[Rfam]
RNA sequence: UUACUCUGGUUUCUCUUCAUAACGCACAAGUCUUUCGCCUUUUACUAAAGACUUCCGUGGAGAGUGACUCCAACGAGUUUAGCCUGUUUUUGGCAGGCUUUGCUCUCUGGCAGAGCC
Numbered sequence: 001u002u003a004c005u006c007u008g009g010u011u012u013c014u015c016u017u018c019a020u021a022a023c024g025c026a027c028a029a030g031u032c033u034u035u036c037g038c039c040u041u042u043u044a045c046u047a048a049a050g051a052c053u054u055c056c057g058u059g060g061a062g063a064g065u066g067a068c069u070c071c072a073a074c075g076a077g078u079u080u081a082g083c084c085u086g087u088u089u090u091u092g093g094c095a096g097g098c099u100u101u102g103c104u105c106u107c108u109g110g111c112a113g114a115g116c117c
Stems, first nucleotide, its partner, number of pairs: 003078004009068003013064007028054008096117006
RNA: U5 spliceosomal RNA
Organism: Amphiprion ocellaris